[Rfam]
A member of the RNA family "c-di-GMP-I riboswitch aptamer" from Acholeplasma laidlawii, 77 nucleotides long.
Its family is annotated with cyclic-di-GMP binding in the Gene Ontology.
The family's consensus secondary structure is taken from published work.
Taxonomically the source falls in Acholeplasma laidlawii (Bacteria, Mycoplasmatota, Acholeplasmatales, Acholeplasmataceae).

RNA sequence: UAAAGUUUUUGGCAAAAUUAGGGUAACCUAAUGACGCAAAACUAUAGGGCCUAUAUAUUAGGCAGCCAGUUGCACUU
Numbered sequence: 001u002a003a004a005g006u007u008u009u010u011g012g013c014a015a016a017a018u019u020a021g022g023g024u025a026a027c028c029u030a031a032u033g034a035c036g037c038a039a040a041a042c043u044a045u046a047g048g049g050c051c052u053a054u055a056u057a058u059u060a061g062g063c064a065g066c067c068a069g070u071u072g073c074a075c076u077u
Stems, first nucleotide, its partner, number of pairs: 012037002017032006040071004047067002049063003